[Rfam]
RNA sequence: GCCGGUCCUCGGUAGUGGCCUCCGGGAGCGGUCCCGGGGGCUUCGAUCGAAGACCGGC
Numbered sequence: 001g002c003c004g005g006u007c008c009u010c011g012g013u014a015g016u017g018g019c020c021u022c023c024g025g026g027a028g029c030g031g032u033c034c035c036g037g038g039g040g041c042u043u044c045g046a047u048c049g050a051a052g053a054c055c056g057g058c
Stems, first nucleotide, its partner, number of pairs: 001058007009050005017042011

Shown here is a 58-nucleotide sequence from Amycolatopsis rhizosphaerae, a member of the family "Actino-pnp RNA". The match comes from Rfam's covariance-model search (71 bits). Taxonomically the source falls in Amycolatopsis (Bacteria, Bacillati, Pseudonocardiales, Pseudonocardiaceae).